[Rfam]
RNA sequence: UGACGUCUCGCGGGAGAGACCUCGCCACCACCGGGCGAGGCGCCGAAGGAGCAAUACUCCCCAGUAAACUCUCAGGCACCAUUACCGCAGGACACCA
Dot-bracket structure: .....(((.((((......((((((.........)))))).(((((..(((...(........)....))))).))).......)))).))).....

Shown here is a 97-nucleotide RNA from Saccharopolyspora rhizosphaerae, a member of the family "Glycine riboswitch aptamer". Its family is annotated with glycine biosynthetic process in the Gene Ontology.